This 87-nucleotide RNA sequence from Hungateiclostridiaceae bacterium KB18 belongs to the Rfam family "S10-Clostridia ribosomal protein leader". By type it is a cis-regulatory leader. The literature on the family includes a 2020 paper in BMC Microbiol by Eckert and Weinberg, "Discovery of 20 novel ribosomal leader candidates in bacteria and archaea". The source organism's lineage runs through Bacteria, Bacillati, Bacillota, Clostridia and Oscillospiraceae.
RNA sequence: UGAUAUGCGUUGAAGCGGGAGGUUGCGGCUCGGCACCAGACUGUAGCCGGUUUUUCCGUGGAGUAUGUCCGAUUUUAAACCGGGCGA
Dot-bracket structure: ..............(((.((((...(((((..............)))))...)))))))........((...(((......))).))